Shown here is a 94-nucleotide sequence from Rhizobacter koreensis, a member of the family "Burkholderia RNA 7 (anti-hemB)". A search with the family's covariance model found it, with a score of 52 bits. Rfam describes the family as follows. This RNA motif was identified by computational search in b-proteobacteria Burkholderia. Lineage of the source: Bacteria > Pseudomonadati > Burkholderiales > Sphaerotilaceae > Rhizobacter. Rfam classes the family as a small RNA.

Nucleotides: 094
Base pairs, nucleotide, nucleotide: 003025004024005023006022007021008020027053028052029051030050031049032048033047034046035045036044060087061086062085063084064083065082066081067080068079069078070077071076
Number, partner (000 for none) and nucleotide at each position: 001000c002000c003025c004024c005023u006022g007021c008020u009000u010000u011000u012000c013000c014000u015000c016000c017000c018000u019000g020008a021007g022006c023005a024004g025003g026000u027053g028052c029051c030050g031049a032048a033047c034046c035045g036044c037000a038000g039000a040000u041000u042000c043000a044036g045035c046034g047033g048032u049031u050030c051029g052028g053027c054000u055000u056000u057000c058000c059000u060087g061086c062085c063084c064083c065082g066081g067080c068079c069078g070077g071076u072000a073000u074000g075000c076071g077070c078069u079068g080067g081066u082065c083064g084063g085062g086061g087060c088000g089000u090000u091000c092000u093000u094000u